[Rfam]
RNA: SAM riboswitch aptamer (S box leader)
Organism: Saliterribacillus persicus
RNA sequence: UUCUUAUCAAGAGAGGUGGAGGGAACGGCCCUUUGAAGCCUCGGCAACCAUUAAGUUUCGUGCUUAAUAUAGGUGCCAAUUCCUACUGAAAUCGUUUUGAUUUUAGCAGAGAUAAGAG
Numbered sequence: 001u002u003c004u005u006a007u008c009a010a011g012a013g014a015g016g017u018g019g020a021g022g023g024a025a026c027g028g029c030c031c032u033u034u035g036a037a038g039c040c041u042c043g044g045c046a047a048c049c050a051u052u053a054a055g056u057u058u059c060g061u062g063c064u065u066a067a068u069a070u071a072g073g074u075g076c077c078a079a080u081u082c083c084u085a086c087u088g089a090a091a092u093c094g095u096u097u098u099g100a101u102u103u104u105a106g107c108a109g110a111g112a113u114a115a116g117a118g
Stems, first nucleotide, its partner, number of pairs: 001118008013042005021031003027083002043077004048073002050068006081110001086106008